Background: Shown here is an 87-nucleotide RNA from Celeribacter indicus, a member of the family "chrB-a RNA". Taxonomically the source falls in Celeribacter (Bacteria, Alphaproteobacteria, Rhodobacterales, Roseobacteraceae). The match comes from Rfam's covariance-model search (48 bits). The family's RNA type in Rfam is cis-regulatory element.
RNA sequence: AUUCAGGGGUCCGCAAGAACCCCGUGAGGCGCCAGCCCAAUCUUGCAUCCUUCCAGUUCUCGCUCUUUGCAUGGAGGAUGCUUUAUG
Numbered sequence: 001a002u003u004c005a006g007g008g009g010u011c012c013g014c015a016a017g018a019a020c021c022c023c024g025u026g027a028g029g030c031g032c033c034a035g036c037c038c039a040a041u042c043u044u045g046c047a048u049c050c051u052u053c054c055a056g057u058u059c060u061c062g063c064u065c066u067u068u069g070c071a072u073g074g075a076g077g078a079u080g081c082u083u084u085a086u087g
Stems, first nucleotide, its partner, number of pairs: 006023005045081009